[Rfam]
RNA: Plastid-ycf2 5UTR RNA
RNA sequence: GUGCAUCCGGUAGGAAUUGAACCUACGACUUCGCCAAUUAUGAGUUGGGCGUUGUAACCAUUCUACCAUGGAUGC
Numbered sequence: 001g002u003g004c005a006u007c008c009g010g011u012a013g014g015a016a017u018u019g020a021a022c023c024u025a026c027g028a029c030u031u032c033g034c035c036a037a038u039u040a041u042g043a044g045u046u047g048g049g050c051g052u053u054g055u056a057a058c059c060a061u062u063c064u065a066c067c068a069u070g071g072a073u074g075c
Stems, first nucleotide, its partner, number of pairs: 003075006010026005040069003044066002047063003051059001
Dot-bracket structure: ..((((((.(((((.......))))).............(((.((.(((.(.......).))).)))))))))))